[Rfam]
RNA sequence: AAUCGGUGUUUUUAACGACACACACAUGCCGCAACGCGUUCAUGGGUGCCUGCGUUUUACCAGAGACGGCAGGUCGUGAACGUCGGGUAUGUGGAGGCUUAAC
Numbered sequence: 001a002a003u004c005g006g007u008g009u010u011u012u013u014a015a016c017g018a019c020a021c022a023c024a025c026a027u028g029c030c031g032c033a034a035c036g037c038g039u040u041c042a043u044g045g046g047u048g049c050c051u052g053c054g055u056u057u058u059a060c061c062a063g064a065g066a067c068g069g070c071a072g073g074u075c076g077u078g079a080a081c082g083u084c085g086g087g088u089a090u091g092u093g094g095a096g097g098c099u100u101a102a103c
Stems, first nucleotide, its partner, number of pairs: 023093008036083008048074005
Source information
Rfam assigns this 103-nucleotide RNA from an Olavius algarvensis Gamma 3 endosymbiont to the family "t44 RNA". It scores 56 bits against the family's covariance model. The organism belongs to Gammaproteobacteria, within Bacteria.